[Rfam]
RNA sequence: UUAGCCCUGUCAAUCCGAAGGCUUGCGUUCCUACGUGAGCUACUGACGUAGGUGAGAUGGGGCUUU
Numbered sequence: 001u002u003a004g005c006c007c008u009g010u011c012a013a014u015c016c017g018a019a020g021g022c023u024u025g026c027g028u029u030c031c032u033a034c035g036u037g038a039g040c041u042a043c044u045g046a047c048g049u050a051g052g053u054g055a056g057a058u059g060g061g062g063c064u065u066u
Stems, first nucleotide, its partner, number of pairs: 003064009015052002020041009
RNA: DUF3800-VIII RNA